[Rfam]
Shown here is a 145-nucleotide RNA from Tetracentron sinense, a member of the family "Small nucleolar RNA snoR136". Pairs were carried over by alignment from the consensus structure, which was predicted with mfold.
RNA sequence: AUGGCUUCAUUUUCUUCAUUUAAUUAAUAAAGGCUGCUUGAUUAUUCGAGUCUAGUGGCCCUGUUUAAAUGAUACCAUAAAUUGUUCCCCUUGCUAUCUCCAGUGUGAUGUUUAUAUUGCAUUUGGACGUGGGGGAACAAAAUUU
Numbered sequence: 001a002u003g004g005c006u007u008c009a010u011u012u013u014c015u016u017c018a019u020u021u022a023a024u025u026a027a028u029a030a031a032g033g034c035u036g037c038u039u040g041a042u043u044a045u046u047c048g049a050g051u052c053u054a055g056u057g058g059c060c061c062u063g064u065u066u067a068a069a070u071g072a073u074a075c076c077a078u079a080a081a082u083u084g085u086u087c088c089c090c091u092u093g094c095u096a097u098c099u100c101c102a103g104u105g106u107g108a109u110g111u112u113u114a115u116a117u118u119g120c121a122u123u124u125g126g127a128c129g130u131g132g133g134g135g136a137a138c139a140a141a142a143u144u145u
Stems, first nucleotide, its partner, number of pairs: 001078004008071005023064002030062001032060006084138007092129002099127005108117003

Notes
The source organism's lineage runs through Eukaryota, Streptophyta, Magnoliopsida, Trochodendraceae and Tetracentron. Rfam 15.1 lists 452 matches to the family in 212 species. It is annotated as an H/ACA-box small nucleolar RNA.